[Rfam]
RNA: U7 small nuclear RNA
Organism: Propithecus coquereli
RNA sequence: UAGUAUUACAGCUCUUUUAGAAUUUGUUUAGUAGUUUUCUGGUCCUCACCAGAAGACCCC
Dot-bracket structure: .................................((((((((((....))))))))))...
Numbered sequence: 001u002a003g004u005a006u007u008a009c010a011g012c013u014c015u016u017u018u019a020g021a022a023u024u025u026g027u028u029u030a031g032u033a034g035u036u037u038u039c040u041g042g043u044c045c046u047c048a049c050c051a052g053a054a055g056a057c058c059c060c
Stems, first nucleotide, its partner, number of pairs: 034057010